[Rfam]
RNA sequence: GAGGCGGUAUCGCACCAUGCGAAUCGCACUCUUAUGGACAUAUUAUUGAUGAUCUGAAUUGAAUAACCGUCAUGAUUCUAUUGUCGGUUACGUUGGAUUCUGCUCUGAGCCGAAGGGACCGAGACAGAAGG
Numbered sequence: 001g002a003g004g005c006g007g008u009a010u011c012g013c014a015c016c017a018u019g020c021g022a023a024u025c026g027c028a029c030u031c032u033u034a035u036g037g038a039c040a041u042a043u044u045a046u047u048g049a050u051g052a053u054c055u056g057a058a059u060u061g062a063a064u065a066a067c068c069g070u071c072a073u074g075a076u077u078c079u080a081u082u083g084u085c086g087g088u089u090a091c092g093u094u095g096g097a098u099u100c101u102g103c104u105c106u107g108a109g110c111c112g113a114a115g116g117g118a119c120c121g122a123g124a125c126a127g128a129a130g131g
Stems, first nucleotide, its partner, number of pairs: 001031003004027005010022002100127003103123003107119001110117002
Rfam assigns this 131-nucleotide RNA from Paenibacillus sp. CAA11 to the family "pan motif".
It is annotated as a cis-regulatory element.
Taxonomically the source falls in Paenibacillus (Bacteria, Bacillota, Bacilli, Caryophanales).